[Rfam]
RNA sequence: UAUUGAGCACUUACUCUGUGCCAGGUACUUUGUACAUGUUCCUGGCACAGAGUAAGUGCUCAAUA
Numbered sequence: 001u002a003u004u005g006a007g008c009a010c011u012u013a014c015u016c017u018g019u020g021c022c023a024g025g026u027a028c029u030u031u032g033u034a035c036a037u038g039u040u041c042c043u044g045g046c047a048c049a050g051a052g053u054a055a056g057u058g059c060u061c062a063a064u065a
Stems, first nucleotide, its partner, number of pairs: 001065025027039002